Annotation
The record is a 64-nucleotide sequence from Xenopus tropicalis, which matches "Small nucleolar RNA SNORD75" in Rfam. Its family is annotated with nucleolus and RNA processing in the Gene Ontology.

RNA sequence: AGCCAGUGAUGCUUCAAAGAGUAGUGGACAGGUGUGAUUUCUGACAGCUUGUAAAACUGAGGCU
Numbered sequence: 001a002g003c004c005a006g007u008g009a010u011g012c013u014u015c016a017a018a019g020a021g022u023a024g025u026g027g028a029c030a031g032g033u034g035u036g037a038u039u040u041c042u043g044a045c046a047g048c049u050u051g052u053a054a055a056a057c058u059g060a061g062g063c064u
Stems, first nucleotide, its partner, number of pairs: 001064004
By type it is a C/D-box small nucleolar RNA.
For this family Rfam cites "Purified box C/D snoRNPs are able to reproduce site-specific 2'-O-methylation of target RNA in vitro" (Galardi et al., Mol Cell Biol, 2002).
The base pairs follow the family's consensus structure, which was predicted with RNAalifold.